[Rfam]
RNA: Small nucleolar RNA Z194
Organism: Zizania palustris
RNA sequence: UGCAGACUGAUGAUGAAAUUAUUCCUCCAAGCUUUUUACACUGAUGUCUAUAUGAUGGAGGACUAUGAUAUCAUAGCCUUUAUAGUUUUCAAUCUGAAACAUCU
Numbered sequence: 001u002g003c004a005g006a007c008u009g010a011u012g013a014u015g016a017a018a019u020u021a022u023u024c025c026u027c028c029a030a031g032c033u034u035u036u037u038a039c040a041c042u043g044a045u046g047u048c049u050a051u052a053u054g055a056u057g058g059a060g061g062a063c064u065a066u067g068a069u070a071u072c073a074u075a076g077c078c079u080u081u082a083u084a085g086u087u088u089u090c091a092a093u094c095u096g097a098a099a100c101a102u103c104u
Stems, first nucleotide, its partner, number of pairs: 004104003030042002034038001058081004063076005